[Rfam]
RNA sequence: AAUGGUGUGAGAGAGCUUCCUUCAGCCCACUCAUGGAUGGGGGUAAAGGGGCUGAAGUAUCUGCCGACUCAUUCAUUCAAGCACUAGUAGACAAAGGGAUUGGUACUGUUUUAGCUACUGUGAUUGUAUGAAUGAUGCGGGAGAUAAUUUUGCAUCCCUCUUUUUCCGUGCUUGGACUGAAGGGAGCUCCUUCUUUCUACAGC
Numbered sequence: 001a002a003u004g005g006u007g008u009g010a011g012a013g014a015g016c017u018u019c020c021u022u023c024a025g026c027c028c029a030c031u032c033a034u035g036g037a038u039g040g041g042g043g044u045a046a047a048g049g050g051g052c053u054g055a056a057g058u059a060u061c062u063g064c065c066g067a068c069u070c071a072u073u074c075a076u077u078c079a080a081g082c083a084c085u086a087g088u089a090g091a092c093a094a095a096g097g098g099a100u101u102g103g104u105a106c107u108g109u110u111u112u113a114g115c116u117a118c119u120g121u122g123a124u125u126g127u128a129u130g131a132a133u134g135a136u137g138c139g140g141g142a143g144a145u146a147a148u149u150u151u152g153c154a155u156c157c158c159u160c161u162u163u164u165u166c167c168g169u170g171c172u173u174g175g176a177c178u179g180a181a182g183g184g185a186g187c188u189c190c191u192u193c194u195u196u197c198u199a200c201a202g203c
Base pairs, nucleotide, nucleotide: 013189014188015187016186017185018184019183020182023179024178025177027175028174029173036166061143062142064140065139066138070134071133072132073131078126
RNA: MIR159 microRNA precursor family
Organism: Ricinus communis